[Rfam]
RNA: mir-135 microRNA precursor family
Organism: Megalops atlanticus
RNA sequence: UGCUCAUUGCACGGUAUGGCUUUAUAUUCCUAUCUGAUUGUCCUGAGGAUUCAUAUAGGGAUGGAAGCCAUGCAGUGCGAUGGGUU
Numbered sequence: 001u002g003c004u005c006a007u008u009g010c011a012c013g014g015u016a017u018g019g020c021u022u023u024a025u026a027u028u029c030c031u032a033u034c035u036g037a038u039u040g041u042c043c044u045g046a047g048g049a050u051u052c053a054u055a056u057a058g059g060g061a062u063g064g065a066a067g068c069c070a071u072g073c074a075g076u077g078c079g080a081u082g083g084g085u086u
Stems, first nucleotide, its partner, number of pairs: 002085011014073010026062008035053003
Dot-bracket structure: .(((((((((((.((((((((((..((((((((.(((.............))).)))))))).)))))))))).))))))))))).